[Rfam]
RNA sequence: CCCGCCGCGUGCUCCACGACGGCGGGCGACUGACGCCGGUACCUGAUACGGCCGGCGCAG
Numbered sequence: 001c002c003c004g005c006c007g008c009g010u011g012c013u014c015c016a017c018g019a020c021g022g023c024g025g026g027c028g029a030c031u032g033a034c035g036c037c038g039g040u041a042c043c044u045g046a047u048a049c050g051g052c053c054g055g056c057g058c059a060g
Stems, first nucleotide, its partner, number of pairs: 001026007008018002030060003034057007